A member of the RNA family "PyrR binding site" from Paenisporosarcina cavernae, 123 nucleotides long. Its family is annotated with pyrimidine nucleobase biosynthetic process and pyrimidine nucleobase transport in the Gene Ontology. A search with the family's covariance model found it, with a score of 57 bits.
RNA sequence: AUUCCGUUUAACAUGUAGUCCCGUGAGGCUAAUAAGGGAAUGGGGAUUAAAUCUAUGCACGUAUAGGUUUAUUUUCUGUUAUCUUGUGAUGCCUCUCCUAGUUACUGGAGAGGCAUUUUUUAU
Numbered sequence: 001a002u003u004c005c006g007u008u009u010a011a012c013a014u015g016u017a018g019u020c021c022c023g024u025g026a027g028g029c030u031a032a033u034a035a036g037g038g039a040a041u042g043g044g045g046a047u048u049a050a051a052u053c054u055a056u057g058c059a060c061g062u063a064u065a066g067g068u069u070u071a072u073u074u075u076c077u078g079u080u081a082u083c084u085u086g087u088g089a090u091g092c093c094u095c096u097c098c099u100a101g102u103u104a105c106u107g108g109a110g111a112g113g114c115a116u117u118u119u120u121u122a123u
Stems, first nucleotide, its partner, number of pairs: 003039003007035002016031005044075003048071010088117011

About the family: This family represents the PyrR binding site and terminator structure. This RNA structure is found upstream of a variety of genes involved in pyrimidine biosynthesis and transport. The alignment also includes a portion of the antiterminator structure. Pairs were carried over by alignment from the consensus structure, which is taken from published work.